The record is an 87-nucleotide RNA sequence from Brevibacillus panacihumi, which matches "Group II catalytic intron D1-D4-1" in Rfam.
Its family is annotated with Group II intron splicing in the Gene Ontology.
The pairing is the family consensus, mapped onto this sequence.
Rfam's curators write: Group II introns are found in rRNA, tRNA and mRNA of organelles in fungi, plants and protists, and also in mRNA in bacteria.
RNA sequence: UAACCUUCUCCGCUAGGAGAAACUGAACGGUCAGGAGUCAGCAGAGGCCAUAGUACCGGAGUAGAGGACGCUUGAAACGGGAAGGGC
Numbered sequence: 001u002a003a004c005c006u007u008c009u010c011c012g013c014u015a016g017g018a019g020a021a022a023c024u025g026a027a028c029g030g031u032c033a034g035g036a037g038u039c040a041g042c043a044g045a046g047g048c049c050a051u052a053g054u055a056c057c058g059g060a061g062u063a064g065a066g067g068a069c070g071c072u073u074g075a076a077a078c079g080g081g082a083a084g085g086g087c
Base pairs, nucleotide, nucleotide: 001025002024006021007020008019009018010017011016038045039044047087048086049085056080057079058078